Clostridiales-1 RNA: a 163-nucleotide sequence from Coprococcus eutactus. The family has 194 seed sequences and 1,172 matches in Rfam 15.1.
RNA sequence: CGUUUACAGGGUGACAAGCGGCUGCGAUGCGCGAGCUUGCUCGCAUGCAUCAGCAGACAUUUGUCACCCGCGCGCGACAUGAAACACGGAGCCCGGGAGGGCGGAGUGUGAAUGCCGUGCAGGGAUUGAGAGAGCGCGCAGCGCGGAGCAAUCCCAGUAAACG
Numbered sequence: 001c002g003u004u005u006a007c008a009g010g011g012u013g014a015c016a017a018g019c020g021g022c023u024g025c026g027a028u029g030c031g032c033g034a035g036c037u038u039g040c041u042c043g044c045a046u047g048c049a050u051c052a053g054c055a056g057a058c059a060u061u062u063g064u065c066a067c068c069c070g071c072g073c074g075c076g077a078c079a080u081g082a083a084a085c086a087c088g089g090a091g092c093c094c095g096g097g098a099g100g101g102c103g104g105a106g107u108g109u110g111a112a113u114g115c116c117g118u119g120c121a122g123g124g125a126u127u128g129a130g131a132g133a134g135c136g137c138g139c140a141g142c143g144c145g146g147a148g149c150a151a152u153c154c155c156a157g158u159a160a161a162c163g
Stems, first nucleotide, its partner, number of pairs: 001163007010068004016062003020058001022056004026051005031044005073119004078114003084109004091102004123154006134144004
Dot-bracket structure: (((((((..((((..(((.(.((((((((((((((....)))))..))))).)))).).)))..))))....((((.(((...((((...((((....))))...))))..))).))))...((((((.....((((...))))....))))))..)))))))